Record summary
A member of the RNA family "Bacterial RNase P class B" from Streptococcus zalophi, 365 nucleotides long. Gene Ontology terms of the family: tRNA processing, ribonuclease P activity and dimeric ribonuclease P complex. Pairs were carried over by alignment from the consensus structure, which is taken from published work. It scores 354 bits against the family's covariance model. The family's RNA type in Rfam is ribozyme.
RNA sequence: AUUUUUGGAUAAUCGCAUGAUUUUUAUAAAUUAUGAGGAAAGUCCAUGCUAGCACCGGCUGUGAUGCCGGUAGUGUUUGUGCUAGGUGAAACAAUAAGCCUAGGGAUGUUUUUAACAUUACGGCGACCCAAAUAGCUAAGUCUAAGAUAUGCUAAAGUAGGUCUUAAAGUGCCACAGUGACGUAGUUUUUGUGGAAACGCAAAAAAUGGAACGCGGUAAACCCCUCAAGCUAGCAACCCAAACUUUGGUCGGGGCACGAGAUAGAUGGAAACAGAACGUACUAUCUUGACUGUUUAACAGUAGACAGAUGAUUAUCGAAAAAGACAAGACCUAGUUGUCUUUGGAACAAAACAUGGCUUAUAGAA
Numbered sequence: 001a002u003u004u005u006u007g008g009a010u011a012a013u014c015g016c017a018u019g020a021u022u023u024u025u026a027u028a029a030a031u032u033a034u035g036a037g038g039a040a041a042g043u044c045c046a047u048g049c050u051a052g053c054a055c056c057g058g059c060u061g062u063g064a065u066g067c068c069g070g071u072a073g074u075g076u077u078u079g080u081g082c083u084a085g086g087u088g089a090a091a092c093a094a095u096a097a098g099c100c101u102a103g104g105g106a107u108g109u110u111u112u113u114a115a116c117a118u119u120a121c122g123g124c125g126a127c128c129c130a131a132a133u134a135g136c137u138a139a140g141u142c143u144a145a146g147a148u149a150u151g152c153u154a155a156a157g158u159a160g161g162u163c164u165u166a167a168a169g170u171g172c173c174a175c176a177g178u179g180a181c182g183u184a185g186u187u188u189u190u191g192u193g194g195a196a197a198c199g200c201a202a203a204a205a206a207u208g209g210a211a212c213g214c215g216g217u218a219a220a221c222c223c224c225u226c227a228a229g230c231u232a233g234c235a236a237c238c239c240a241a242a243c244u245u246u247g248g249u250c251g252g253g254g255c256a257c258g259a260g261a262u263a264g265a266u267g268g269a270a271a272c273a274g275a276a277c278g279u280a281c282u283a284u285c286u287u288g289a290c291u292g293u294u295u296a297a298c299a300g301u302a303g304a305c306a307g308a309u310g311a312u313u314a315u316c317g318a319a320a321a322a323g324a325c326a327a328g329a330c331c332u333a334g335u336u337g338u339c340u341u342u343g344g345a346a347c348a349a350a351a352c353a354u355g356g357c358u359u360a361u362a363g364a365a
Base pairs, nucleotide, nucleotide: 004365005364006363007361008316009315010314011313012312013311014310016035017034018033019032020031021030040359041358042357044356045355046354047353048352049233050232051231052230053229054071055070056069057068058067059066077228078227079226081224082103083102084101085100086099087098104121105119106118107117108116109115110114122223123222125163126162127161128160133154134153135152136151140148141147142146169221170220171217172216173215186205187204188203189202190201191200192199193198237253238252239251257288258287259286260285261284262283263282289301290300291299292298293297320342321341322340323339324338325337326336327335